[Rfam]
RNA sequence: GGGCAACUAUGAUGACAAUUUCAUUCUGUAUGUAAUAUAUUUUGUUACUAAAUGAGGACAACAGUCCCUCUAAACUGAUGUUGCCA
Numbered sequence: 001g002g003g004c005a006a007c008u009a010u011g012a013u014g015a016c017a018a019u020u021u022c023a024u025u026c027u028g029u030a031u032g033u034a035a036u037a038u039a040u041u042u043u044g045u046u047a048c049u050a051a052a053u054g055a056g057g058a059c060a061a062c063a064g065u066c067c068c069u070c071u072a073a074a075c076u077g078a079u080g081u082u083g084c085c086a
Base pairs, nucleotide, nucleotide: 002085003084004083005082006081007080